The family of this 109-nucleotide sequence from Candidatus Atribacteria bacterium MT.SAG.1 is "Glycine riboswitch aptamer".
A search with the family's covariance model found it, with a score of 64 bits.
Rfam links the family to the GO term glycine biosynthetic process.
Nucleotides: 109
Base pairs, nucleotide, nucleotide: 006104007103008102009101010100011099012098013097020047021046022045023044024043025042026041027040028039029038049089050088051087052085053084056083057082058081062076063075064074065073
Number, partner (000 for none) and nucleotide at each position: 001000a002000u003000g004000a005000a006104g007103g008102u009101a010100a011099c012098a013097g014000g015000a016000g017000a018000g019000a020047c021046u022045u023044u024043u025042u026041c027040u028039u029038u030000c031000c032000a033000u034000c035000a036000u037000a038029a039028a040027a041026g042025a043024a044023a045022a046021g047020g048000a049089g050088c051087c052085g053084a054000a055000g056083a057082g058081g059000c060000a061000a062076g063075a064074u065073a066000c067000u068000a069000a070000a071000a072000g073065u074064a075063u076062c077000c078000a079000a080000a081058c082057u083056u084053u085052c086000a087051g088050g089049c090000a091000a092000a093000a094000g095000g096000a097013c098012u099011g100010u101009u102008a103007c104006c105000g106000g107000a108000c109000a